[Rfam]
RNA: MIR8024 microRNA precursor family
RNA sequence: CUUGCAAACUUAAAGAUUUCAACUUGCAGACUUAAAGAAUUUGAAGACCUCAACUUGCAGACUUGAAGAAUUUGAAGAUCUCAUCU
Number, nucleotide and partner (000 for none) at each position: 001c000002u083003u000004g081005c000006a079007a000008a000009c000010u075011u074012a073013a072014a071015g000016a000017u068018u067019u066020c065021a064022a000023c000024u000025u059026g058027c057028a056029g000030a000031c000032u053033u052034a000035a050036a000037g048038a000039a000040u000041u000042u000043g000044a000045a000046g000047a000048c037049c000050u035051c000052a033053a032054c000055u000056u028057g027058c026059a025060g000061a000062c000063u000064u021065g020066a019067a018068g017069a000070a000071u014072u013073u012074g011075a010076a000077g000078a000079u006080c000081u004082c000083a002084u000085c000086u000